[Rfam]
RNA sequence: GUCGGUUUGUUACACAGACCUAAAGCAGUUUAGUUAAGCAGUCCAGAUUGUUAUCCAUAGAUACCCUUCGUAGUGACCCUUCCUUCAUCGCUUAAAAAUCUGUAACGCAACCAUCGCGCCGGAAGGCACAACAAAUUUUUAAUAAGGUAAUUUCUAUGUCUGGUAAAAUGACUGGUCUGGUAAAAUGGUUCAACGCUGAUAAAGGUUUCGGCUUCAUCACUCCUGACGAUGGCUCUAAAGACGUGUUCGUACACUUCUCUGCUAUCCAGAACGAAGGCUACAAAUCUCUGGACGAAGGUCAGAAAGUGUCCUUCACCAUCGAAAGCGGCGCUAAAGGCCCAGCAGCUGGUAACGUUGUAAGCCUGUAAGCUUCCAACUCAGCAGCAAAGAAUUCUAAAACCCGCCUUCUGGCGGGUUUUUUCGU
Dot-bracket structure: ...((((((.....))))))...((.(((........(.(((((.....((((..(.(.((.(((...(((((........((((.((.((.(...........).)).........(((....)))..............))))))......))))).(((((......)))))...........))))).).).))))....)....)))))....))).))..((((((.......((.....))..((((((.((((((.((((((..((..........))))))))....)).))))))))))......)))))).....((.(((...))))).((((((.((......)).)).))))..(((.(.......).)))....((....((((((((((....))))))))))))...
Numbered sequence: 001g002u003c004g005g006u007u008u009g010u011u012a013c014a015c016a017g018a019c020c021u022a023a024a025g026c027a028g029u030u031u032a033g034u035u036a037a038g039c040a041g042u043c044c045a046g047a048u049u050g051u052u053a054u055c056c057a058u059a060g061a062u063a064c065c066c067u068u069c070g071u072a073g074u075g076a077c078c079c080u081u082c083c084u085u086c087a088u089c090g091c092u093u094a095a096a097a098a099u100c101u102g103u104a105a106c107g108c109a110a111c112c113a114u115c116g117c118g119c120c121g122g123a124a125g126g127c128a129c130a131a132c133a134a135a136u137u138u139u140u141a142a143u144a145a146g147g148u149a150a151u152u153u154c155u156a157u158g159u160c161u162g163g164u165a166a167a168a169u170g171a172c173u174g175g176u177c178u179g180g181u182a183a184a185a186u187g188g189u190u191c192a193a194c195g196c197u198g199a200u201a202a203a204g205g206u207u208u209c210g211g212c213u214u215c216a217u218c219a220c221u222c223c224u225g226a227c228g229a230u231g232g233c234u235c236u237a238a239a240g241a242c243g244u245g246u247u248c249g250u251a252c253a254c255u256u257c258u259c260u261g262c263u264a265u266c267c268a269g270a271a272c273g274a275a276g277g278c279u280a281c282a283a284a285u286c287u288c289u290g291g292a293c294g295a296a297g298g299u300c301a302g303a304a305a306g307u308g309u310c311c312u313u314c315a316c317c318a319u320c321g322a323a324a325g326c327g328g329c330g331c332u333a334a335a336g337g338c339c340c341a342g343c344a345g346c347u348g349g350u351a352a353c354g355u356u357g358u359a360a361g362c363c364u365g366u367a368a369g370c371u372u373c374c375a376a377c378u379c380a381g382c383a384g385c386a387a388a389g390a391a392u393u394c395u396a397a398a399a400c401c402c403g404c405c406u407u408c409u410g411g412c413g414g415g416u417u418u419u420u421u422c423g424u
Stems, first nucleotide, its partner, number of pairs: 004020006024224002027221003038214001040213004044205001050200004056195001058193001060191002063189003069158005082147004087143002090108002093105001118127003160175005227321006240248002251309006258303004262298002265292006273286002327340002330338003342366004346361002349358002369385003373381001390421002396419010
Rfam assigns this 424-nucleotide RNA from Enterobacter cancerogenus to the family "cspA thermoregulator". The organism belongs to Enterobacter cancerogenus, within Bacteria. It is one of the family's seed sequences. The base pairs follow the family's consensus structure, which is taken from published work. A reference for the family is Giuliodori et al. (2010), "The cspA mRNA is a thermosensor that modulates translation of the cold-shock protein CspA", Mol Cell. By type it is an RNA thermoregulator.